[Rfam]
RNA sequence: CCGGCGGGGACACCUGGAAAGACUGUGGUCUCUUCCAGCUCUGUCCAUGUGGCGUAUGGGAGUGUAGGCCUCCGGGCUCUGUGACAUAUGGUCCCCUUCCACGCUGCUGGAGAGCAAGUUGGACUUCCGUGGUCUGCAGCCUGCAUAUUCCUACUGCUUCUCUGAGUCUCUGGACCAUGACAGAGGAGAUAAACCAUGCAGGAGACAUUC
Dot-bracket structure: ((((((((((((.(((...((((....))))....)))...)))))..((((.....(((((.((.(..............)...)).)..))))...)))).))))))).............................(((((((..........((((((...(((....))).......)))))).......)))))))........
Numbered sequence: 001c002c003g004g005c006g007g008g009g010a011c012a013c014c015u016g017g018a019a020a021g022a023c024u025g026u027g028g029u030c031u032c033u034u035c036c037a038g039c040u041c042u043g044u045c046c047a048u049g050u051g052g053c054g055u056a057u058g059g060g061a062g063u064g065u066a067g068g069c070c071u072c073c074g075g076g077c078u079c080u081g082u083g084a085c086a087u088a089u090g091g092u093c094c095c096c097u098u099c100c101a102c103g104c105u106g107c108u109g110g111a112g113a114g115c116a117a118g119u120u121g122g123a124c125u126u127c128c129g130u131g132g133u134c135u136g137c138a139g140c141c142u143g144c145a146u147a148u149u150c151c152u153a154c155u156g157c158u159u160c161u162c163u164g165a166g167u168c169u170c171u172g173g174a175c176c177a178u179g180a181c182a183g184a185g186g187a188g189a190u191a192a193a194c195c196a197u198g199c200a201g202g203a204g205a206c207a208u209u210c
Stems, first nucleotide, its partner, number of pairs: 001110007008046005014038003020031004049102004058095004062089001064087002067082001140202007157188006166175003
Small nucleolar RNA SNORA73 family: a 210-nucleotide RNA sequence from Laticauda laticaudata. Taxonomically the source falls in Laticauda (Eukaryota, Deuterostomia, Amniota, Episquamata). On this family, see Enright et al., RNA 1996: "5'ETS rRNA processing facilitated by four small RNAs: U14, E3, U17, and U3". About the family: U17 (SNORA73A and SNORA73B) also known as E1 belongs to the H/ACA class of small nucleolar RNAs (snoRNAs). Vertebrate U17 is intron-encoded and ranges in length from 200-230 nucleotides, longer than most snoRNAs. It is one of the most abundant snoRNAs in human cells and is essential for the cleavage of pre-rRNA within the 5' external transcribed spacer (ETS). This cleavage leads to the formation of 18S rRNA. Regions of the U17 RNA are complementary to rRNA and act as guides for RNA/RNA interactions, although these regions do not seem to be well conserved between organisms. The family's consensus secondary structure is taken from published work. Rfam classes the family as an H/ACA-box small nucleolar RNA. Rfam links the family to the GO terms nucleolus and RNA processing. It scores 164 bits against the family's covariance model. Rfam 15.1 lists 2,326 matches to the family in 660 species.